[Rfam]
RNA sequence: UGUUCAUCGAGAGCGGUGGAGGGACGGGCCCUGCGAAGCCGCGGCAACCGGCGGACCACGGAGUCUGCGGCAGGUGCCAAUUCCCGCGGAGGAGACUCCGAGAGAUGAGCG
Numbered sequence: 001u002g003u004u005c006a007u008c009g010a011g012a013g014c015g016g017u018g019g020a021g022g023g024a025c026g027g028g029c030c031c032u033g034c035g036a037a038g039c040c041g042c043g044g045c046a047a048c049c050g051g052c053g054g055a056c057c058a059c060g061g062a063g064u065c066u067g068c069g070g071c072a073g074g075u076g077c078c079a080a081u082u083c084c085c086g087c088g089g090a091g092g093a094g095a096c097u098c099c100g101a102g103a104g105a106u107g108a109g110c111g
Base pairs, nucleotide, nucleotide: 001111002110003109004108005107006106007105008104013042014041015040016039017038021031022030023029025086026085027084028083043078044077045076046075048074049073050071052069053068082103087100088099089098090097091096
Overview
SAM riboswitch aptamer (S box leader): a 111-nucleotide RNA sequence from Rubrobacter taiwanensis. Lineage of the source: Bacteria > Bacillati > Actinomycetota > Rubrobacterales > Rubrobacter.